[Rfam]
RNA sequence: CGUCCCGAUGGGGAUGGAGUUCCCCGAAACCGCCCGUCAGGGCUGAUGACUCCUACCGCGAA
Number, nucleotide and partner (000 for none) at each position: 001c000002g000003u000004c000005c000006c000007g000008a000009u000010g025011g024012g023013g022014a000015u000016g053017g052018a051019g050020u049021u048022c013023c012024c011025c010026g000027a000028a000029a000030c000031c000032g043033c042034c041035c040036g000037u000038c000039a000040g035041g034042g033043c032044u000045g000046a000047u000048g021049a020050c019051u018052c017053c016054u000055a000056c000057c000058g000059c000060g000061a000062a000

Notes
This 62-nucleotide RNA from Methylobacterium radiotolerans belongs to the Rfam family "Fluoride riboswitch aptamer (crcB RNA motif)". The family's consensus secondary structure is taken from published work.